[Rfam]
RNA sequence: AAAAUGAUGACCGUUACCGGUCAGGGCCUGCUGUUGCCUGAAAAAGGGUAA
Numbered sequence: 001a002a003a004a005u006g007a008u009g010a011c012c013g014u015u016a017c018c019g020g021u022c023a024g025g026g027c028c029u030g031c032u033g034u035u036g037c038c039u040g041a042a043a044a045a046g047g048g049u050a051a
Base pairs, nucleotide, nucleotide: 009022010021011020012019013018

Record summary:
This 51-nucleotide RNA sequence belongs to the Rfam family "algC RNA". It is one of the family's seed sequences. By type it is a cis-regulatory element.